[Rfam]
RNA: Pseudomonas sRNA P33
RNA sequence: CCGCCCGGCACCGCCCGCCGAACCGUGGCGCAGGCCAAUAUCCGCCGGUUCGGCGGGGCUGCGGUCCUUGCCCGGAUUUUGGGCAGCGUGCACCAGCAGGCGACAAAUCGGCAGGAAUCGCUGGCGGAAAAGCCCGCUCCGUCA
Numbered sequence: 001c002c003g004c005c006c007g008g009c010a011c012c013g014c015c016c017g018c019c020g021a022a023c024c025g026u027g028g029c030g031c032a033g034g035c036c037a038a039u040a041u042c043c044g045c046c047g048g049u050u051c052g053g054c055g056g057g058g059c060u061g062c063g064g065u066c067c068u069u070g071c072c073c074g075g076a077u078u079u080u081g082g083g084c085a086g087c088g089u090g091c092a093c094c095a096g097c098a099g100g101c102g103a104c105a106a107a108u109c110g111g112c113a114g115g116a117a118u119c120g121c122u123g124g125c126g127g128a129a130a131a132g133c134c135c136g137c138u139c140c141g142u143c144a
Base pairs, nucleotide, nucleotide: 002030003029004028005027006025007024008023033135034134036132041128042127043126044125045124046123047122048121049120053112054111055068056067057066058065059064069085070084071083072082073081074080086101087100089098090097091096